[Rfam]
RNA sequence: UGCGACACCCAUCGAAGGAAUAAUUCUCCACCCCGAAGCUACUUUACCAUAUUUAGAAUCC
Numbered sequence: 001u002g003c004g005a006c007a008c009c010c011a012u013c014g015a016a017g018g019a020a021u022a023a024u025u026c027u028c029c030a031c032c033c034c035g036a037a038g039c040u041a042c043u044u045u046a047c048c049a050u051a052u053u054u055a056g057a058a059u060c061c
Stems, first nucleotide, its partner, number of pairs: 017045003021041002024038002027035001